[Rfam]
RNA sequence: CCCCCGGGUCCCCGAUGUCGUCCCCGGAUGAGCCUGCAGUAUUUUCCUUAUAUGAUUGGGCCCCAUGGCAGGCGACGUCGCUUUGCCCGGAGCCUGAGAGGAUUAUGACAACGUGUCAGGUGAAGUGGGGCCAGGGGACCGGGAG
Numbered sequence: 001c002c003c004c005c006g007g008g009u010c011c012c013c014g015a016u017g018u019c020g021u022c023c024c025c026g027g028a029u030g031a032g033c034c035u036g037c038a039g040u041a042u043u044u045u046c047c048u049u050a051u052a053u054g055a056u057u058g059g060g061c062c063c064c065a066u067g068g069c070a071g072g073c074g075a076c077g078u079c080g081c082u083u084u085g086c087c088c089g090g091a092g093c094c095u096g097a098g099a100g101g102a103u104u105a106u107g108a109c110a111a112c113g114u115g116u117c118a119g120g121u122g123a124a125g126u127g128g129g130g131c132c133a134g135g136g137g138a139c140c141g142g143g144a145g
Stems, first nucleotide, its partner, number of pairs: 001145001003143001005142001007140007020131005056097006063090002068086003071082004